Notes
The record is a 112-nucleotide RNA from Thiomonas sp. X19, which matches "Glycine riboswitch aptamer" in Rfam. Its family is annotated with glycine biosynthetic process in the Gene Ontology. The organism belongs to Thiomonas, within Bacteria.

RNA sequence: UGGCUGUCGUCAGGAGAGAGUCGAAGUGCCGUUGCGCGGCGCCUUGGCCGCCGAAGGCGUAAACCCGGGAUCGCCGGGUGUACCGCUCAGGCAAAAGGACUGAUGACACCCU
Numbered sequence: 001u002g003g004c005u006g007u008c009g010u011c012a013g014g015a016g017a018g019a020g021u022c023g024a025a026g027u028g029c030c031g032u033u034g035c036g037c038g039g040c041g042c043c044u045u046g047g048c049c050g051c052c053g054a055a056g057g058c059g060u061a062a063a064c065c066c067g068g069g070a071u072c073g074c075c076g077g078g079u080g081u082a083c084c085g086c087u088c089a090g091g092c093a094a095a096a097g098g099a100c101u102g103a104u105g106a107c108a109c110c111c112u
Stems, first nucleotide, its partner, number of pairs: 006107008020048004050092003053088002057086003063079006